[Rfam]
RNA sequence: CCAGCCGGCCGGGCGGCCGCGGUGUGGGACCUUGCGUCCGCAUCGAGGAAAGUCCGGGCUCCACUCAGACACGGUGCCGGAUAACGUCCGGCGGGGGUGACCCUAGGGAAAGUGCCACAGAAAACAAACCACCCGCGAAGGACUUUCGGGUCCGCGUGGGCCAGGGUGAAACGGUGGGGUAAGAGCCCACCGCGCGACCGGCAACGGGAGCGGCACGGCAAACCCCACCGGGAGCAAAGUCGAAUAGGGACGGCACGGGAAACCACCCCUGUCUGCGGGGCGCCGUCCGGGUUGACUGCUAGAGGCGCCGGGCAACCGGCGUCCCAGAGGAAUGGUCGCCACGCGGGUGCAAGCCCGCCGUACAGAACCCGGCUUACAGGCCGGCUGGUGCA
Dot-bracket structure: ((((((((((((((((((.(((((((((........)))))))))....[[[.[[[[[((((.....[...((((((((((.....)))))(((((....)))).)((...(((((............((.((((((.................))))))...)).......((((((.......))))))((((..(((....)))..))).)..)))..)))))))))))))...((((......((((((............((((....]..))))..)))))).....))))......((((((((....))))))))..........)))))))...........................]]]]]]]].).))))))))))....
A member of the RNA family "Bacterial RNase P class A" from Xanthobacter versatilis, 392 nucleotides long. The base pairs follow the family's consensus structure, which is taken from published work. The sequence is in the family's curated seed alignment. Rfam classes the family as a ribozyme. Lineage of the source: Bacteria > Pseudomonadota > Alphaproteobacteria > Xanthobacteraceae > Xanthobacter.